[Rfam]
RNA: MIR6217 microRNA precursor family
RNA sequence: UAGCCAUAGAAUAACUUAUUCUGUGAUCACUUUGAAUUACGAUAAUUACCAUGCCAAUUUAUCAUACUACAAUAACUCCUUACUAAGUGGUUUACUAUAAUAUUAUGGAGUAAAUAUCACCGUGAGCUAUAGUAACACGAGUAUCGUAAAUGCAUAUUCACGUUAUCGUAAAUUGGUAUAGACAUUAUCGUAAAUCAAGGUGGCUAUAUAAUAAGUUAUUCUAUAUAUA
Numbered sequence: 001u002a003g004c005c006a007u008a009g010a011a012u013a014a015c016u017u018a019u020u021c022u023g024u025g026a027u028c029a030c031u032u033u034g035a036a037u038u039a040c041g042a043u044a045a046u047u048a049c050c051a052u053g054c055c056a057a058u059u060u061a062u063c064a065u066a067c068u069a070c071a072a073u074a075a076c077u078c079c080u081u082a083c084u085a086a087g088u089g090g091u092u093u094a095c096u097a098u099a100a101u102a103u104u105a106u107g108g109a110g111u112a113a114a115u116a117u118c119a120c121c122g123u124g125a126g127c128u129a130u131a132g133u134a135a136c137a138c139g140a141g142u143a144u145c146g147u148a149a150a151u152g153c154a155u156a157u158u159c160a161c162g163u164u165a166u167c168g169u170a171a172a173u174u175g176g177u178a179u180a181g182a183c184a185u186u187a188u189c190g191u192a193a194a195u196c197a198a199g200g201u202g203g204c205u206a207u208a209u210a211a212u213a214a215g216u217u218a219u220u221c222u223a224u225a226u227a228u229a
Stems, first nucleotide, its partner, number of pairs: 001229002006224015022208004027203007037193010051179012066166001069163002074157001080149004087144003091140002093134007101126001103124001108118001